[Rfam]
RNA sequence: GAUUGCGCAAGGAUUAUCUCCCUUUGACCCUGAUAAAGCUGCAAUCGCGGCUG
Numbered sequence: 001g002a003u004u005g006c007g008c009a010a011g012g013a014u015u016a017u018c019u020c021c022c023u024u025u026g027a028c029c030c031u032g033a034u035a036a037a038g039c040u041g042c043a044a045u046c047g048c049g050g051c052u053g
Stems, first nucleotide, its partner, number of pairs: 001046007

This 53-nucleotide sequence belongs to the Rfam family "S4-Bacteroidia ribosomal protein leader".
On this family, see Eckert and Weinberg, BMC Microbiol 2020: "Discovery of 20 novel ribosomal leader candidates in bacteria and archaea".
The family is grouped with related families in Rfam's "Ribosomal Protein S4 Leader clan".